[Rfam]
This 164-nucleotide RNA from Hibiscus trionum belongs to the Rfam family "MIR530 microRNA precursor family".

RNA sequence: GCUGAGAUGUAGCCUUUGUCUGCAUUUGCACCUGCACCUCCUUGUUUUUUAUCCGUUUCAGCUUUAGAAACUAUAUGGCAGAUGUGUUUGUGCUGUAGAUGAAAACAGGAUAAGACCGAGACCAGGGAGGUGCAGGUGCAGGUGCAGCUGAAAGCCAUUUUGGC
Numbered sequence: 001g002c003u004g005a006g007a008u009g010u011a012g013c014c015u016u017u018g019u020c021u022g023c024a025u026u027u028g029c030a031c032c033u034g035c036a037c038c039u040c041c042u043u044g045u046u047u048u049u050u051a052u053c054c055g056u057u058u059c060a061g062c063u064u065u066a067g068a069a070a071c072u073a074u075a076u077g078g079c080a081g082a083u084g085u086g087u088u089u090g091u092g093c094u095g096u097a098g099a100u101g102a103a104a105a106c107a108g109g110a111u112a113a114g115a116c117c118g119a120g121a122c123c124a125g126g127g128a129g130g131u132g133c134a135g136g137u138g139c140a141g142g143u144g145c146a147g148c149u150g151a152a153a154g155c156c157a158u159u160u161u162g163g164c
Base pairs, nucleotide, nucleotide: 001164002163003162004161005160006159007158008157009156012155013154015152016151017150018149020147021146022145023144024143025142026141027140028139029138030137031136032135033134034133035132036131037130038129039128055071056070057069058068059067060065

Rfam links the family to the GO terms RISC complex and miRNA-mediated post-transcriptional gene silencing. Lineage of the source: Eukaryota > Euphyllophyta > eudicotyledons > Malvoideae > Hibiscus. The match comes from Rfam's covariance-model search (87 bits). The family's consensus secondary structure was predicted with WAR. For this family Rfam cites "Stress-responsive microRNAs in Populus" (Lu et al., Plant J, 2008).